small nucleolar RNA snoR126: a 107-nucleotide sequence from Corchorus olitorius. The family has 4 seed sequences and 423 matches in Rfam 15.1. Rfam links the family to the GO terms RNA processing and nucleolus. On this family, see Chen and Wu, Nucleic Acids Res 2009: "Mining small RNA sequencing data: a new approach to identify small nucleolar RNAs in Arabidopsis". Lineage of the source: Eukaryota > Mesangiospermae > Malvales > Grewioideae > Corchorus.
RNA sequence: GGGCAAUGAUGACAGAUUUACGUUUCUCGAUUCUGAUUUUCUUAAAUUGUUUUGAUUUAAGGACCAAACAGCUCUCUGAUGACAGCGUUUGUGCGUGUCUGAGCCUA
Number, nucleotide and partner (000 for none) at each position: 001g106002g105003g104004c103005a000006a000007u000008g000009a000010u000011g000012a000013c000014a000015g000016a000017u000018u000019u000020a000021c000022g000023u000024u000025u000026c000027u000028c000029g000030a000031u000032u000033c000034u000035g000036a000037u000038u000039u000040u000041c000042u000043u000044a000045a000046a000047u000048u000049g000050u000051u000052u000053u000054g000055a000056u000057u000058u000059a000060a000061g000062g000063a000064c000065c000066a000067a000068a000069c000070a000071g000072c000073u000074c000075u000076c000077u000078g000079a000080u000081g000082a000083c000084a000085g000086c000087g000088u000089u000090u000091g000092u000093g000094c000095g000096u000097g000098u000099c000100u000101g000102a000103g004104c003105c002106u001107a000